[Rfam]
RNA: Bacterial RNase P class A
RNA sequence: CCAGACGGCCGGAUGGCCGCCUUCACUUUCGGGGCUCGCCCCGGGGCGGGGGAGGAAAGUCCGGGCUCCACGGGAAGACGGUGCCGGGUAACGCCCGGCGGGGGCGACCCCAGGGAAAGUGCCACAGAAAGCAAACCGCCCGGCGGCCCCUCACGGGGACCCACCGCCGGGUAAGGGUGAAAGGGUGCGGUAAGAGCGCACCGCGGGCCCGGUAACGGGACCGGCACGGCAAACCCCACCGGGAGCAAGACCGAGUAGGGACGACAGGCCGCAAGGCCGGGCGGUUUCCGCGCCGUCGUCCGGGUAGGUCGCGCGAGGCGCCCGGCGACGGGCGUCCCAGAUGAAUGGCCAUCCAGGGGCCGCGGCCGCGAGGCCCGGCCCUGGACAGAACCCGGCUUACAGGCCGUCUGGCGUU
Numbered sequence: 001c002c003a004g005a006c007g008g009c010c011g012g013a014u015g016g017c018c019g020c021c022u023u024c025a026c027u028u029u030c031g032g033g034g035c036u037c038g039c040c041c042c043g044g045g046g047c048g049g050g051g052g053a054g055g056a057a058a059g060u061c062c063g064g065g066c067u068c069c070a071c072g073g074g075a076a077g078a079c080g081g082u083g084c085c086g087g088g089u090a091a092c093g094c095c096c097g098g099c100g101g102g103g104g105c106g107a108c109c110c111c112a113g114g115g116a117a118a119g120u121g122c123c124a125c126a127g128a129a130a131g132c133a134a135a136c137c138g139c140c141c142g143g144c145g146g147c148c149c150c151u152c153a154c155g156g157g158g159a160c161c162c163a164c165c166g167c168c169g170g171g172u173a174a175g176g177g178u179g180a181a182a183g184g185g186u187g188c189g190g191u192a193a194g195a196g197c198g199c200a201c202c203g204c205g206g207g208c209c210c211g212g213u214a215a216c217g218g219g220a221c222c223g224g225c226a227c228g229g230c231a232a233a234c235c236c237c238a239c240c241g242g243g244a245g246c247a248a249g250a251c252c253g254a255g256u257a258g259g260g261a262c263g264a265c266a267g268g269c270c271g272c273a274a275g276g277c278c279g280g281g282c283g284g285u286u287u288c289c290g291c292g293c294c295g296u297c298g299u300c301c302g303g304g305u306a307g308g309u310c311g312c313g314c315g316a317g318g319c320g321c322c323c324g325g326c327g328a329c330g331g332g333c334g335u336c337c338c339a340g341a342u343g344a345a346u347g348g349c350c351a352u353c354c355a356g357g358g359g360c361c362g363c364g365g366c367c368g369c370g371a372g373g374c375c376c377g378g379c380c381c382u383g384g385a386c387a388g389a390a391c392c393c394g395g396c397u398u399a400c401a402g403g404c405c406g407u408c409u410g411g412c413g414u415u
Stems, first nucleotide, its partner, number of pairs: 001411010011400001012353007020052005026046003057398003061395005066245004074289001076287002079241005084098005099113001100111004114236002119234002121230003136176002138172009184202006203225001204223003208219004249310004259301006280294004317336008